A member of the RNA family "MIR2619 microRNA precursor family" from Medicago truncatula, 200 nucleotides long. It scores 195 bits against the family's covariance model.
[Rfam]
RNA sequence: AAACAGCCCCUUAUGUAUUGGAUCUAUGGCGGUUUUGACCCCUAAGGCCACUUUUGACUUAGUAUUCGCUGACGUGGCACCCAUAAUGGUCGACACGUGGUACCUCACUUAAAAGAUGUGGGUGCCACGUCAGCGAAGACUAAGUCAAAAGUGACAUUGGGAGCCAAAACUGCCAAAGAUCCAAUACAUAGGGGUUGUUU
Numbered sequence: 001a002a003a004c005a006g007c008c009c010c011u012u013a014u015g016u017a018u019u020g021g022a023u024c025u026a027u028g029g030c031g032g033u034u035u036u037g038a039c040c041c042c043u044a045a046g047g048c049c050a051c052u053u054u055u056g057a058c059u060u061a062g063u064a065u066u067c068g069c070u071g072a073c074g075u076g077g078c079a080c081c082c083a084u085a086a087u088g089g090u091c092g093a094c095a096c097g098u099g100g101u102a103c104c105u106c107a108c109u110u111a112a113a114a115g116a117u118g119u120g121g122g123u124g125c126c127a128c129g130u131c132a133g134c135g136a137a138g139a140c141u142a143a144g145u146c147a148a149a150a151g152u153g154a155c156a157u158u159g160g161g162a163g164c165c166a167a168a169a170c171u172g173c174c175a176a177a178g179a180u181c182c183a184a185u186a187c188a189u190a191g192g193g194g195u196u197g198u199u200u
Stems, first nucleotide, its partner, number of pairs: 001200002004197005012190014027175011039163001041161005072130002075127008
Dot-bracket structure: ((.(((((...((((((((((((((.(((((((((((.(.(((((..........................((.((((((((.....................................)))))))).))..........................))))).).))))))))))).))))))))))))))..))))).))
The base pairs follow the family's consensus structure, which was predicted with RNAalifold.